[Rfam]
RNA sequence: GUGGAGAAAUGACGAGAACAUAUUCCAGAGGUUGUUUCUGAGGGUGAUAAAUGUUAUCUACCUCUUGAUUAUACCUUGCACGUCAGUCUGAUCCCAAC
Numbered sequence: 001g002u003g004g005a006g007a008a009a010u011g012a013c014g015a016g017a018a019c020a021u022a023u024u025c026c027a028g029a030g031g032u033u034g035u036u037u038c039u040g041a042g043g044g045u046g047a048u049a050a051a052u053g054u055u056a057u058c059u060a061c062c063u064c065u066u067g068a069u070u071a072u073a074c075c076u077u078g079c080a081c082g083u084c085a086g087u088c089u090g091a092u093c094c095c096a097a098c
Stems, first nucleotide, its partner, number of pairs: 001098002004095001006093002
RNA: Small nucleolar RNA Z122
Organism: Setaria italica